[Rfam]
RNA sequence: AGGUUAUUUCAAAGAGGACUUGUGGGGCUGUGAAACCAGGAUCUCUUAAGACUAUGACCAAAGCUUGAAGUUCUCCAUAGGAUGCCGUAAUCACUCAGUAAUGUUAUGCUUUUCCAAGGAAAUGUAAGA
Numbered sequence: 001a002g003g004u005u006a007u008u009u010c011a012a013a014g015a016g017g018a019c020u021u022g023u024g025g026g027g028c029u030g031u032g033a034a035a036c037c038a039g040g041a042u043c044u045c046u047u048a049a050g051a052c053u054a055u056g057a058c059c060a061a062a063g064c065u066u067g068a069a070g071u072u073c074u075c076c077a078u079a080g081g082a083u084g085c086c087g088u089a090a091u092c093a094c095u096c097a098g099u100a101a102u103g104u105u106a107u108g109c110u111u112u113u114c115c116a117a118g119g120a121a122a123u124g125u126a127a128g129a
Stems, first nucleotide, its partner, number of pairs: 002059006014047004020041002023039001026037002072122001074120003080114003087107004092103002095100001

Source information
Shown here is a 129-nucleotide RNA sequence from Carlito syrichta, a member of the family "Small nucleolar RNA SNORA25". Its family is annotated with nucleolus and RNA processing in the Gene Ontology. Rfam 15.1 lists 1,129 matches to the family in 449 species. Lineage of the source: Eukaryota > Chordata > Euteleostomi > Haplorrhini > Carlito. It is annotated as an H/ACA-box small nucleolar RNA. The match comes from Rfam's covariance-model search (104 bits).